[Rfam]
RNA sequence: CUGCGGGCCAAGCGUCCCCAACGGCGCUCAGCCUAUCUGUAAGGAUAGGAGUA
Numbered sequence: 001c002u003g004c005g006g007g008c009c010a011a012g013c014g015u016c017c018c019c020a021a022c023g024g025c026g027c028u029c030a031g032c033c034u035a036u037c038u039g040u041a042a043g044g045a046u047a048g049g050a051g052u053a
Stems, first nucleotide, its partner, number of pairs: 011028006033048006
Dot-bracket structure: ..........((((((......))))))....((((((....)))))).....
Background: serC leader: a 53-nucleotide RNA from Hirschia baltica. By type it is a cis-regulatory leader. Rfam's curators write: This family is a putative regulatory RNA structure that is found upstream of the serC-serA operon in some alpha-proteobacteria. The final stem of the structure overlaps the ribosome binding site of the serC reading frame. Pairs were carried over by alignment from the consensus structure. For this family Rfam cites "Evidence for a second class of S-adenosylmethionine riboswitches and other regulatory RNA motifs in alpha-proteobacteria" (Corbino et al., Genome Biol, 2005).